[Rfam]
RNA: glmS glucosamine-6-phosphate activated ribozyme aptamer
Organism: Metabacillus harenarius
RNA sequence: AAAGUAUAUAAAGCGCCUGGACUAAGUGCUGGAAAAAAGACUUAGUUGACGAGGAUGGAGGUUAUCGAAUUUUCGGCGGAUGCCUCCCGGUUGAAUAGGUUACAACCGAAAGCUUCUCUUCAAACCAAAGAGGUAACUUUUUGAACAAAGAGAGAAGUAUAGCCUUCC
Dot-bracket structure: ...................((((((((.(.........))))))))).........(((((...((((....))))......)))))((((((.........))))))...(((((((.......(((((((....)))))))........)))))))..........